[Rfam]
RNA sequence: GCCCGAAUGAUCCAUGGCGGUCUGUGGUGCAGGCUUCAAACCUGUAGGCGGUUAGCCCCGCAGUGGUUCGACUCCACCUUUCGGGU
Number, nucleotide and partner (000 for none) at each position: 001g086002c085003c084004c083005g082006a081007a080008u000009g078010a000011u000012c027013c026014a025015u024016g023017g022018c000019g000020g000021u000022c017023u016024g015025u014026g013027g012028u046029g045030c044031a043032g042033g041034c000035u000036u000037c000038a000039a000040a000041c033042c032043u031044g030045u029046a028047g000048g061049c060050g059051g058052u000053u000054a000055g000056c000057c000058c051059c050060g049061c048062a000063g077064u076065g075066g074067u000068u000069c000070g000071a000072c000073u000074c066075c065076a064077c063078c009079u000080u007081u006082c005083g004084g003085g002086u001

A member of the RNA family "Selenocysteine transfer RNA" from Caenorhabditis angaria, 86 nucleotides long. The organism belongs to Caenorhabditis, within Eukaryota.